[Rfam]
Nucleotides: 101
Base pairs, nucleotide, nucleotide: 003099004098005097010089011088012087013086014085015084016083017082018081019080020078021077022076026056027055029054030053031052032051033050034049040095041094042093043092044091060075061074062073063072
Number, partner (000 for none) and nucleotide at each position: 001000a002000a003099c004098g005097g006000a007000g008000u009000a010089g011088g012087c013086g014085g015084c016083g017082a018081a019080g020078c021077g022076u023000u024000a025000a026056g027055u028000g029054c030053u031052g032051a033050u034049g035000g036000a037000a038000c039000g040095g041094a042093a043092u044091g045000u046000g047000a048000a049034c050033a051032u052031c053030a054029g055027a056026c057000g058000a059000a060075a061074a062073u063072a064000a065000g066000g067000c068000a069000a070000c071000u072063u073062a074061u075060u076022g077021c078020g079000g080019u081018u082017u083016c084015g085014c086013u087012g088011u089010c090000g091044c092043a093042u094041u095040c096000g097005c098004c099003g100000c101000a